[Rfam]
RNA sequence: CUGAAACAGGCAUGCAGGGUGGACGAAUCCCCUGGGAUACGGGCCCGUCAUCUGCCCAUAAAAAGAGGCAGGUGCAUGCCGGAUUCAG
Numbered sequence: 001c002u003g004a005a006a007c008a009g010g011c012a013u014g015c016a017g018g019g020u021g022g023a024c025g026a027a028u029c030c031c032c033u034g035g036g037a038u039a040c041g042g043g044c045c046c047g048u049c050a051u052c053u054g055c056c057c058a059u060a061a062a063a064a065g066a067g068g069c070a071g072g073u074g075c076a077u078g079c080c081g082g083a084u085u086c087a088g
Stems, first nucleotide, its partner, number of pairs: 001088005009080005015047001017046003024041002027038004049074008
Source information: This 88-nucleotide sequence belongs to the Rfam family "L4-Archaeoglobi ribosomal protein leades". It is one of the family's seed sequences.